[Rfam]
RNA sequence: AACCAGUGAUGAAGAGAUUCUGCCAAAUGAUUGUGCUGAUUAUACCCCUUUCCGUUCCAUUUAUUUCUGAGGUU
Numbered sequence: 001a002a003c004c005a006g007u008g009a010u011g012a013a014g015a016g017a018u019u020c021u022g023c024c025a026a027a028u029g030a031u032u033g034u035g036c037u038g039a040u041u042a043u044a045c046c047c048c049u050u051u052c053c054g055u056u057c058c059a060u061u062u063a064u065u066u067c068u069g070a071g072g073u074u
Base pairs, nucleotide, nucleotide: 001074002073003072004071

This 74-nucleotide sequence from Clarias magur belongs to the Rfam family "Small nucleolar RNA SNORD47".
Rfam 15.1 lists 755 matches to the family in 638 species.
Taxonomically the source falls in Clarias (Eukaryota, Chordata, Craniata, Teleostei).
A search with the family's covariance model found it, with a score of 69 bits.
Rfam classes the family as a C/D-box small nucleolar RNA.
The literature on the family includes a 1996 paper in Cell by Kiss-Laszlo et al., "Site-specific ribose methylation of preribosomal RNA: a novel function for small nucleolar RNAs".
Gene Ontology terms of the family: nucleolus and RNA processing.